This 178-nucleotide RNA from Sporosarcina sp. BI001-red belongs to the Rfam family "Lysine riboswitch aptamer".
Pairs were carried over by alignment from the consensus structure, which is taken from published work.
[Rfam]
RNA sequence: AAUGAGGAUAGAGGCGCAAAGACCAUUAGUACACAUUCUGAGGAUGAUGAGAUCCGUUGAAGAUUGUGGAGAGGGGAAUUUGCCGAAGUGGAGAGAUGCUCAUUAUCUCAAAGCUGGUUCUGGGCUGAACAAGUUCAGGACUGUCAUAUAGGAAACUAUAUGGAGGGCUAUCUGAUGC
Numbered sequence: 001a002a003u004g005a006g007g008a009u010a011g012a013g014g015c016g017c018a019a020a021g022a023c024c025a026u027u028a029g030u031a032c033a034c035a036u037u038c039u040g041a042g043g044a045u046g047a048u049g050a051g052a053u054c055c056g057u058u059g060a061a062g063a064u065u066g067u068g069g070a071g072a073g074g075g076g077a078a079u080u081u082g083c084c085g086a087a088g089u090g091g092a093g094a095g096a097u098g099c100u101c102a103u104u105a106u107c108u109c110a111a112a113g114c115u116g117g118u119u120c121u122g123g124g125c126u127g128a129a130c131a132a133g134u135u136c137a138g139g140a141c142u143g144u145c146a147u148a149u150a151g152g153a154a155a156c157u158a159u160a161u162g163g164a165g166g167g168c169u170a171u172c173u174g175a176u177g178c
Stems, first nucleotide, its partner, number of pairs: 006173006016083005023076002032068004037063003087115003093109006116142011144163007